[Rfam]
RNA sequence: GAUUUUCGGACCAAAGGACUCCUCCUCCCACCUGCGGUCCGGCUUCGACCGAUCCACCUCCUCCCGGAUCGGCCAUCGAAAGAGCGCUCGCCGAAUCCUCCUCCCAUCGGCGAGCGCUUUUC
Numbered sequence: 001g002a003u004u005u006u007c008g009g010a011c012c013a014a015a016g017g018a019c020u021c022c023u024c025c026u027c028c029c030a031c032c033u034g035c036g037g038u039c040c041g042g043c044u045u046c047g048a049c050c051g052a053u054c055c056a057c058c059u060c061c062u063c064c065c066g067g068a069u070c071g072g073c074c075a076u077c078g079a080a081a082g083a084g085c086g087c088u089c090g091c092c093g094a095a096u097c098c099u100c101c102u103c104c105c106a107u108c109g110g111c112g113a114g115c116g117c118u119u120u121u122c
Base pairs, nucleotide, nucleotide: 007041008040009039011037012036015033016032017031047074049072050071051070052069053068054067084117085116086115087114088113089112090111091110092109093108094107
RNA: Alphaproteobacterial ar14